[Rfam]
RNA sequence: UGCGUUCUGCGCUUCUCGACAGGAACAACUGCAUCCCCGGGGCCUUACUGAUCUCUAAGGGAACUGUCCCUGGGAAGGCUCGUGAGCCUUCUCAUAUGGUGCCCACCUACUUUGUAGGUACCCGGGAUCAAAAUGAGUCCAUCGGUUGCUGUGGUUCGCAC
Numbered sequence: 001u002g003c004g005u006u007c008u009g010c011g012c013u014u015c016u017c018g019a020c021a022g023g024a025a026c027a028a029c030u031g032c033a034u035c036c037c038c039g040g041g042g043c044c045u046u047a048c049u050g051a052u053c054u055c056u057a058a059g060g061g062a063a064c065u066g067u068c069c070c071u072g073g074g075a076a077g078g079c080u081c082g083u084g085a086g087c088c089u090u091c092u093c094a095u096a097u098g099g100u101g102c103c104c105a106c107c108u109a110c111u112u113u114g115u116a117g118g119u120a121c122c123c124g125g126g127a128u129c130a131a132a133a134u135g136a137g138u139c140c141a142u143c144g145g146u147u148g149c150u151g152u153g154g155u156u157c158g159c160a161c
Base pairs, nucleotide, nucleotide: 002159003158004157007154008153009152010151011150012148015145017144018143019142034127035126036125037124039122040121042119043118044117059104060103061102063100064099065098066097067096072093073092074091075090076089077088078087079086080085
A member of the RNA family "6S / SsrS RNA" from Attibartonella tamiae, 161 nucleotides long. The match comes from Rfam's covariance-model search (76 bits). It is annotated as a non-coding RNA gene. The base pairs follow the family's consensus structure, which is taken from published work. Lineage of the source: Bacteria > Pseudomonadota > Alphaproteobacteria > Bartonellaceae > Attibartonella tamiae. About the family: E. coli 6S RNA was the first non coding RNA to be sequenced, but its function was unknown until recently. It consists of 184 nucleotides that fold into an extended hairpin structure with a large single-stranded internal bulge. The 6S RNA specifically associates with RNA polymerase holoenzyme containing the sigma70 specificity factor. This interaction represses expression from a sigma70-dependent promoter during stationary phase. 6S RNA homologs have recently been identified in most bacterial genomes. Many Gram-positive species have two copies of 6S RNA. In Bacillus subtilis, both copies appear to interact with RNA polymerase holoenzyme containing the housekeeping sigma factor and be expressed during different stages of growth. In many proteobacteria, 6S RNA may be processed from a transcript encoding homologs of the E. coli YgfA protein which is a putative 5-formyltetrahydrofolate cycloligase activity.